A member of the RNA family "mir-204 microRNA precursor family" from Callorhinchus milii, 90 nucleotides long. Gene Ontology terms of the family: miRNA-mediated post-transcriptional gene silencing and RISC complex. The family has 60 seed sequences and 1,730 matches in Rfam 15.1. A search with the family's covariance model found it, with a score of 89 bits.
RNA sequence: GAGUGGCCCAUGGGCUUCCCUUUGUCAUCCUAUGCCUGAAAUUAUAUGAAGGGGGCUGGGAAGGCAAAGGGAUGUUCAAGUGUCAUCAGU
Number, nucleotide and partner (000 for none) at each position: 001g000002a000003g000004u000005g000006g000007c000008c000009c000010a000011u000012g000013g000014g000015c000016u000017u072018c071019c070020c069021u068022u067023u000024g065025u064026c000027a000028u061029c060030c059031u058032a057033u000034g056035c055036c054037u053038g000039a000040a000041a000042u000043u000044a000045u000046a000047u000048g000049a000050a000051g000052g000053g037054g036055g035056c034057u032058g031059g030060g029061a028062a000063g000064g025065c024066a000067a022068a021069g020070g019071g018072a017073u000074g000075u000076u000077c000078a000079a000080g000081u000082g000083u000084c000085a000086u000087c000088a000089g000090u000